This 92-nucleotide RNA from Prunus dulcis belongs to the Rfam family "MIR6288 microRNA precursor family".

RNA sequence: UCAAAACUAGUCACUUGUUAUUUUCUAAUUGGUUUUAAGUGAGUUAGAAUUUUCUAAGAACUAAUUAGAAAAUGACAAGUGACUAAUUUUGG
Numbered sequence: 001u002c003a004a005a006a007c008u009a010g011u012c013a014c015u016u017g018u019u020a021u022u023u024u025c026u027a028a029u030u031g032g033u034u035u036u037a038a039g040u041g042a043g044u045u046a047g048a049a050u051u052u053u054c055u056a057a058g059a060a061c062u063a064a065u066u067a068g069a070a071a072a073u074g075a076c077a078a079g080u081g082a083c084u085a086a087u088u089u090u091g092g
Base pairs, nucleotide, nucleotide: 002091003090004089005088006087008085009084010083011082012081013080014079015078016077017076018075019074020073021072022071023070024069025068026067027066028065029064030063031062032061033060034059035058036057038055039054
Its family is annotated with miRNA-mediated post-transcriptional gene silencing and RISC complex in the Gene Ontology. A search with the family's covariance model found it, with a score of 90 bits.